A member of the RNA family "Small nucleolar RNA SNORD22" from Peromyscus maniculatus, 130 nucleotides long.

RNA sequence: UCUCAGUGAAGAGACGUUCACAUGUCUUAUUUUCUACCCUCAACCUAGUUCAACUGACAAGGUGACCACAUUUGAGCUGGUUUGGGGAGGAGAAGAGGAACAUUCAUUCCAGAAGGAAUUGUUUUGGGAU
Numbered sequence: 001u002c003u004c005a006g007u008g009a010a011g012a013g014a015c016g017u018u019c020a021c022a023u024g025u026c027u028u029a030u031u032u033u034c035u036a037c038c039c040u041c042a043a044c045c046u047a048g049u050u051c052a053a054c055u056g057a058c059a060a061g062g063u064g065a066c067c068a069c070a071u072u073u074g075a076g077c078u079g080g081u082u083u084g085g086g087g088a089g090g091a092g093a094a095g096a097g098g099a100a101c102a103u104u105c106a107u108u109c110c111a112g113a114a115g116g117a118a119u120u121g122u123u124u125u126g127g128g129a130u
Stems, first nucleotide, its partner, number of pairs: 001129006
Taxonomically the source falls in Peromyscus maniculatus (Eukaryota, Chordata, Rodentia, Myomorpha).